RNA sequence: CGGCAACAAUGAUGACAGAAACGGUAGCUGUAGGUAAUGUUCGUUACCGCCUGGAGACACCAGUCCCUCUAAACUGACGUUGCCG
Numbered sequence: 001c002g003g004c005a006a007c008a009a010u011g012a013u014g015a016c017a018g019a020a021a022c023g024g025u026a027g028c029u030g031u032a033g034g035u036a037a038u039g040u041u042c043g044u045u046a047c048c049g050c051c052u053g054g055a056g057a058c059a060c061c062a063g064u065c066c067c068u069c070u071a072a073a074c075u076g077a078c079g080u081u082g083c084c085g
Base pairs, nucleotide, nucleotide: 001085002084003083004082005081006080007079
Dot-bracket structure: (((((((.......................................................................)))))))